[Rfam]
Rfam assigns this 202-nucleotide RNA from Jaculus jaculus to the family "Small nucleolar RNA SNORA73 family".
The match comes from Rfam's covariance-model search (155 bits).
Gene Ontology terms of the family: RNA processing and nucleolus.
The source organism's lineage runs through Eukaryota, Opisthokonta, Chordata, Dipodidae and Jaculus.
U17 (SNORA73A and SNORA73B) also known as E1 belongs to the H/ACA class of small nucleolar RNAs (snoRNAs). Vertebrate U17 is intron-encoded and ranges in length from 200-230 nucleotides, longer than most snoRNAs. It is one of the most abundant snoRNAs in human cells and is essential for the cleavage of pre-rRNA within the 5' external transcribed spacer (ETS).
It is annotated as an H/ACA-box small nucleolar RNA.
The literature on the family includes a 2002 paper in J Mol Evol by Cervelli et al., "Comparative Structure Analysis of Vertebrate U17 Small Nucleolar RNA (snoRNA)".

RNA sequence: ACAACUUGAAUAUCUUAGGAGGUCACUCUCCCGAGGUUCUGUCCAAAUGGCGUAGGGGAGCACAGGGCUCUGCCCUAGGAUGUACAGUCCCUUUCCACAACAUUGGAGAUGAAGCUGGGCCUUGAGUCUGCACCUGCAUAUUCCUAUGGCUUCUCAGUCCUGUAGACCAUGACUGAGGAGAUAAACCAUGCAUGAAAUAAUC
Numbered sequence: 001a002c003a004a005c006u007u008g009a010a011u012a013u014c015u016u017a018g019g020a021g022g023u024c025a026c027u028c029u030c031c032c033g034a035g036g037u038u039c040u041g042u043c044c045a046a047a048u049g050g051c052g053u054a055g056g057g058g059a060g061c062a063c064a065g066g067g068c069u070c071u072g073c074c075c076u077a078g079g080a081u082g083u084a085c086a087g088u089c090c091c092u093u094u095c096c097a098c099a100a101c102a103u104u105g106g107a108g109a110u111g112a113a114g115c116u117g118g119g120c121c122u123u124g125a126g127u128c129u130g131c132a133c134c135u136g137c138a139u140a141u142u143c144c145u146a147u148g149g150c151u152u153c154u155c156a157g158u159c160c161u162g163u164a165g166a167c168c169a170u171g172a173c174u175g176a177g178g179a180g181a182u183a184a185a186c187c188a189u190g191c192a193u194g195a196a197a198u199a200a201u202c
Base pairs, nucleotide, nucleotide: 002105003104004103007100008044010042011041012040014036015035016034018029019028020027021026048097049096050095056091057090058089059088060085062083063082064081133194135192136191137190138189139188150180151179152178153177154176155175157167158166159165